[Rfam]
Nucleotides: 142
Base pairs, nucleotide, nucleotide: 003039004038005037006036007035008034016031017030018029019028020027046101047100048099049098050097051096052095053094104137105136106135107134108133109132110131111130112129113128114127115126116125117124
Number, partner (000 for none) and nucleotide at each position: 001000g002000u003039u004038c005037c006036c007035u008034u009000u010000u011000a012000a013000a014000g015000g016031c017030a018029g019028u020027c021000c022000a023000g024000u025000g026000a027020g028019g029018c030017u031016g032000a033000u034008a035007a036006g037005g038004g039003g040000c041000g042000a043000c044000c045000u046101u047100a048099g049098g050097u051096a052095u053094c054000a055000g056000u057000g058000u059000g060000c061000a062000a063000a064000g065000a066000a067000c068000a069000u070000g071000a072000c073000c074000c075000u076000a077000u078000g079000u080000u081000c082000a083000a084000g085000c086000u087000a088000u089000c090000a091000a092000g093000a094053g095052a096051u097050g098049c099048c100047u101046a102000a103000c104137g105136a106135a107134c108133c109132u110131c111130u112129u113128c114127g115126u116125c117124a118000g119000c120000u121000g122000u123000c124117u125116g126115g127114c128113g129112g130111a131110g132109a133108g134107g135106u136105u137104u138000u139000u140000u141000u142000g

Shown here is a 142-nucleotide RNA sequence from Scopulibacillus darangshiensis, a member of the family "PyrR binding site". Rfam describes the family as follows. This family represents the PyrR binding site and terminator structure. This RNA structure is found upstream of a variety of genes involved in pyrimidine biosynthesis and transport. The alignment also includes a portion of the antiterminator structure. NCBI's taxonomy places the organism under Bacteria, Bacillati, Bacillota, Bacilli, Scopulibacillus. The family's consensus secondary structure is taken from published work. The match comes from Rfam's covariance-model search (56 bits).